[Rfam]
RNA sequence: GUGCGGUCACAAAAAACAAUGUUUUUUGAACGUUGGCACUGCCAACGACUCCACUGCUCCGAAAAAGCUAACAAAAGGAGCGAACAAAUCACAUCGGCGAUUUGUGAAUAAUUUUGCC
Numbered sequence: 001g002u003g004c005g006g007u008c009a010c011a012a013a014a015a016a017c018a019a020u021g022u023u024u025u026u027u028g029a030a031c032g033u034u035g036g037c038a039c040u041g042c043c044a045a046c047g048a049c050u051c052c053a054c055u056g057c058u059c060c061g062a063a064a065a066a067g068c069u070a071a072c073a074a075a076a077g078g079a080g081c082g083a084a085c086a087a088a089u090c091a092c093a094u095c096g097g098c099g100a101u102u103u104g105u106g107a108a109u110a111a112u113u114u115u116g117c118c
Stems, first nucleotide, its partner, number of pairs: 010028008031047007049080004084105007092097001109116002
The record is a 118-nucleotide sequence from Rodentibacter trehalosifermentans, which matches "Aggregatibacter sRNA 22" in Rfam.
The source organism's lineage runs through Bacteria, Pseudomonadati, Gammaproteobacteria, Pasteurellaceae and Rodentibacter.
It is annotated as a small RNA.
The literature on the family includes a 2017 paper in DNA Res by Oogai et al., "Small RNA repertoires and their intraspecies variation in Aggregatibacter actinomycetemcomitans".